The record is a 94-nucleotide RNA sequence from Corymbia citriodora, which matches "Small nucleolar RNA snoR109" in Rfam. The match comes from Rfam's covariance-model search (63 bits). Pairs were carried over by alignment from the consensus structure, which was predicted with WAR. The family's RNA type in Rfam is H/ACA-box small nucleolar RNA. Lineage of the source: Eukaryota > eudicotyledons > Gunneridae > Myrtaceae > Corymbia citriodora. A reference for the family is Marker et al. (2002), "Experimental RNomics: identification of 140 candidates for small non-messenger RNAs in the plant Arabidopsis thaliana", Curr Biol.

RNA sequence: CGGCUGUAGCCAGAUCCAAAGUCAGUAGAAGUUUAACUGGCCGUUUGUCGUCAAACCUCCGUCGGCAAUUCUGCUUACCGAACUUCUCACAUUC
Numbered sequence: 001c002g003g004c005u006g007u008a009g010c011c012a013g014a015u016c017c018a019a020a021g022u023c024a025g026u027a028g029a030a031g032u033u034u035a036a037c038u039g040g041c042c043g044u045u046u047g048u049c050g051u052c053a054a055a056c057c058u059c060c061g062u063c064g065g066c067a068a069u070u071c072u073g074c075u076u077a078c079c080g081a082a083c084u085u086c087u088c089a090c091a092u093u094c
Stems, first nucleotide, its partner, number of pairs: 027087007039075003043071001046068001047066004